[Rfam]
Bacterial large subunit ribosomal RNA: a 587-nucleotide part of an RNA from Natranaerovirga pectinivora.
A search with the family's covariance model found it, with a score of 2901 bits.
Gene Ontology terms of the family: structural constituent of ribosome and ribosome.

RNA sequence: CCCGCGACAGGACGGAAAGACCCCGUGGAGCUUUACUCCAGCUUGAUACUGGGAUUCGGUAUUACAUGUACAGGAUAGGAGGGAGACUAAGAAGGUAGGACGCCAGUCUUGCCAGAGUCGACGUUGGGAUACCUCCCUUGUAGUACUGGAUUUCUAACCUAUACCAGUGAUCCUGGUAAGGGACAAUGUCAGGUGGGGAGUUUGACUGGGGCGGUCGCCUCCGAAAAGGUAUCGGAGGCGCUCAAAGGUCAUCUCAGAAUGGUUGGAAAUCAUUCGAAGAGUGCAAAGGCAUAAGAUGGCUUGACUGUGACACCGACGGGUGGAGCAGGUACGAAAGUAGGACUUAGUGAUCCGGUGGUAUAAAGUGGGAUUGCCAUCGCUCAACGGAUAAAAGCUACCCCGGGGAUAACAGGCUUAUCACUCCCAAGAGUUCACAUCGACGGAGUGGUUUGGCACCUCGAUGUCGGCUCAUCGCAUCCUGGGGCUGUAGUAGGUCCCAAGGGUUGGGCUGUUCGCCCAUUAAAGCGGUACGCGAGCUGGGUUCAGAACGUCGUGAGACAGUUCGGUCCCUAUCCGUCGUGGGCGCA
Numbered sequence: 001c002c003c004g005c006g007a008c009a010g011g012a013c014g015g016a017a018a019g020a021c022c023c024c025g026u027g028g029a030g031c032u033u034u035a036c037u038c039c040a041g042c043u044u045g046a047u048a049c050u051g052g053g054a055u056u057c058g059g060u061a062u063u064a065c066a067u068g069u070a071c072a073g074g075a076u077a078g079g080a081g082g083g084a085g086a087c088u089a090a091g092a093a094g095g096u097a098g099g100a101c102g103c104c105a106g107u108c109u110u111g112c113c114a115g116a117g118u119c120g121a122c123g124u125u126g127g128g129a130u131a132c133c134u135c136c137c138u139u140g141u142a143g144u145a146c147u148g149g150a151u152u153u154c155u156a157a158c159c160u161a162u163a164c165c166a167g168u169g170a171u172c173c174u175g176g177u178a179a180g181g182g183a184c185a186a187u188g189u190c191a192g193g194u195g196g197g198g199a200g201u202u203u204g205a206c207u208g209g210g211g212c213g214g215u216c217g218c219c220u221c222c223g224a225a226a227a228g229g230u231a232u233c234g235g236a237g238g239c240g241c242u243c244a245a246a247g248g249u250c251a252u253c254u255c256a257g258a259a260u261g262g263u264u265g266g267a268a269a270u271c272a273u274u275c276g277a278a279g280a281g282u283g284c285a286a287a288g289g290c291a292u293a294a295g296a297u298g299g300c301u302u303g304a305c306u307g308u309g310a311c312a313c314c315g316a317c318g319g320g321u322g323g324a325g326c327a328g329g330u331a332c333g334a335a336a337g338u339a340g341g342a343c344u345u346a347g348u349g350a351u352c353c354g355g356u357g358g359u360a361u362a363a364a365g366u367g368g369g370a371u372u373g374c375c376a377u378c379g380c381u382c383a384a385c386g387g388a389u390a391a392a393a394g395c396u397a398c399c400c401c402g403g404g405g406a407u408a409a410c411a412g413g414c415u416u417a418u419c420a421c422u423c424c425c426a427a428g429a430g431u432u433c434a435c436a437u438c439g440a441c442g443g444a445g446u447g448g449u450u451u452g453g454c455a456c457c458u459c460g461a462u463g464u465c466g467g468c469u470c471a472u473c474g475c476a477u478c479c480u481g482g483g484g485c486u487g488u489a490g491u492a493g494g495u496c497c498c499a500a501g502g503g504u505u506g507g508g509c510u511g512u513u514c515g516c517c518c519a520u521u522a523a524a525g526c527g528g529u530a531c532g533c534g535a536g537c538u539g540g541g542u543u544c545a546g547a548a549c550g551u552c553g554u555g556a557g558a559c560a561g562u563u564c565g566g567u568c569c570c571u572a573u574c575c576g577u578c579g580u581g582g583g584c585g586c587a
Base pairs, nucleotide, nucleotide: 001583002582003581004580005579006578007577008576010575011574012573014570015569022404023403024402025401027400028399029396030395031394032393033392035201036200037199038198042193043192044191045190046189047188048187051154052153053152054151055150056149057148058147059146060145061144062143063142064141065140066139068137078136079135080134081133082132085119086118087117094113095112096111097110098109099108100107101106158181159180160179162178163177164176165175166174167173204216205215206214207213217239218238219237220236221235222234240385242342243341248300249299250298251297252296253295254280255279257275258274259273260272261271262270281290282289305328306327307326308325311322312321313320330339331338332337353379354378355377356376357375358374359373362371413454414453415452417451418448419447420446421445422444423443424442428438429437465540466538467537468536469535470532471529472528473527474526475525478503479502481498482497483496484495485494486493505519506518507517508516509515546564547563548562549561550559551558552557